The family of this 114-nucleotide sequence from Mucilaginibacter oryzae is "SAM riboswitch aptamer (S box leader)". The base pairs follow the family's consensus structure, which is taken from published work. On this family, see Grundy and Henkin, Mol Microbiol 1998: "The S box regulon: a new global transcription termination control system for methionine and cysteine biosynthesis genes in gram-positive bacteria".
RNA sequence: UAAUUAUCAAGAAAGACUGAGGGAAAGGCCCUGUGAUGUCUUAGCAACCUGUAAGCCCAUUGUUAUAAAGGUGCUAAUUCCUGUCUGCCGUUUACAUGGCAGAGAAGAUAAUAA
Numbered sequence: 001u002a003a004u005u006a007u008c009a010a011g012a013a014a015g016a017c018u019g020a021g022g023g024a025a026a027g028g029c030c031c032u033g034u035g036a037u038g039u040c041u042u043a044g045c046a047a048c049c050u051g052u053a054a055g056c057c058c059a060u061u062g063u064u065a066u067a068a069a070g071g072u073g074c075u076a077a078u079u080c081c082u083g084u085c086u087g088c089c090g091u092u093u094a095c096a097u098g099g100c101a102g103a104g105a106a107g108a109u110a111a112u113a114a
Stems, first nucleotide, its partner, number of pairs: 001114001003112006013042005021031003026082003043075004048071002050067004079106001084103006